[Rfam]
RNA: Alphaproteobacteria transfer-messenger RNA
RNA sequence: CCUCUUUAAACCUUCGCCAAAAAUGCUUAUAUAGGCGCUGUCGGGCAACCGACUAUGGCAGUAAACGGUGCGUGAAAUAGGCAUUAUGGACCCGGGGGCGGUACCCGGCGCCUCCACCAUCAGCGAUUGAAGCCCAUAAAGCAUAUAGGCCGGGGAAGCGACCGCUGCUGAUGGGGGCGAAAUAGGAUCGACAUGUGCUCAAAGACGAUACUUUCUGCUCGGCAUGGUACCACCGUGAUGGGCCAUAUUCACAAAUGCCAAUGAUAACGAGGCAUUUGCUGUUGCAGCGUAAUUAAGACCUAGCGGUCAAGAUUGCAGAGCAAUCAGCACGGUAUUUAGGGGUGCACCGGGUAACAGAAGCAUUCCCG
Numbered sequence: 001c002c003u004c005u006u007u008a009a010a011c012c013u014u015c016g017c018c019a020a021a022a023a024u025g026c027u028u029a030u031a032u033a034g035g036c037g038c039u040g041u042c043g044g045g046c047a048a049c050c051g052a053c054u055a056u057g058g059c060a061g062u063a064a065a066c067g068g069u070g071c072g073u074g075a076a077a078u079a080g081g082c083a084u085u086a087u088g089g090a091c092c093c094g095g096g097g098g099c100g101g102u103a104c105c106c107g108g109c110g111c112c113u114c115c116a117c118c119a120u121c122a123g124c125g126a127u128u129g130a131a132g133c134c135c136a137u138a139a140a141g142c143a144u145a146u147a148g149g150c151c152g153g154g155g156a157a158g159c160g161a162c163c164g165c166u167g168c169u170g171a172u173g174g175g176g177g178c179g180a181a182a183u184a185g186g187a188u189c190g191a192c193a194u195g196u197g198c199u200c201a202a203a204g205a206c207g208a209u210a211c212u213u214u215c216u217g218c219u220c221g222g223c224a225u226g227g228u229a230c231c232a233c234c235g236u237g238a239u240g241g242g243c244c245a246u247a248u249u250c251a252c253a254a255a256u257g258c259c260a261a262u263g264a265u266a267a268c269g270a271g272g273c274a275u276u277u278g279c280u281g282u283u284g285c286a287g288c289g290u291a292a293u294u295a296a297g298a299c300c301u302a303g304c305g306g307u308c309a310a311g312a313u314u315g316c317a318g319a320g321c322a323a324u325c326a327g328c329a330c331g332g333u334a335u336u337u338a339g340g341g342g343u344g345c346a347c348c349g350g351g352u353a354a355c356a357g358a359a360g361c362a363u364u365c366c367c368g
Stems, first nucleotide, its partner, number of pairs: 040053005057219005067212003071207003082197003086194003092108005109179007220235003225245003230242002330349004339365003